[Rfam]
RNA: Bacteroidete tryptophan peptide leader RNA
Organism: Bacteroides sp. CAG:633
RNA sequence: CGUAAAACAACAAAAAGACAAUGAAAACAAGAUUCGUAAAUACAUAUUGGUGGUGGCGCCCGUUACAACUCCUACAGUCGUAAGGGAGCAGCGCUCGUAUGUAUAUAUGUAAUCAGUAACUGAUAUCGGAAAGAGCCCUGCC
Numbered sequence: 001c002g003u004a005a006a007a008c009a010a011c012a013a014a015a016a017g018a019c020a021a022u023g024a025a026a027a028c029a030a031g032a033u034u035c036g037u038a039a040a041u042a043c044a045u046a047u048u049g050g051u052g053g054u055g056g057c058g059c060c061c062g063u064u065a066c067a068a069c070u071c072c073u074a075c076a077g078u079c080g081u082a083a084g085g086g087a088g089c090a091g092c093g094c095u096c097g098u099a100u101g102u103a104u105a106u107a108u109g110u111a112a113u114c115a116g117u118a119a120c121u122g123a124u125a126u127c128g129g130a131a132a133g134a135g136c137c138c139u140g141c142c
Stems, first nucleotide, its partner, number of pairs: 036108003040104008049095004056089002059086003066080001068078003